[Rfam]
RNA sequence: AUUUUAUCCAUGAAAGUGUUUCCUCUAAACCUAUGUGGAGGAACACCUGAUGUCCAGGAAAAU
Numbered sequence: 001a002u003u004u005u006a007u008c009c010a011u012g013a014a015a016g017u018g019u020u021u022c023c024u025c026u027a028a029a030c031c032u033a034u035g036u037g038g039a040g041g042a043a044c045a046c047c048u049g050a051u052g053u054c055c056a057g058g059a060a061a062a063u
Stems, first nucleotide, its partner, number of pairs: 001063005016046007024038001030037001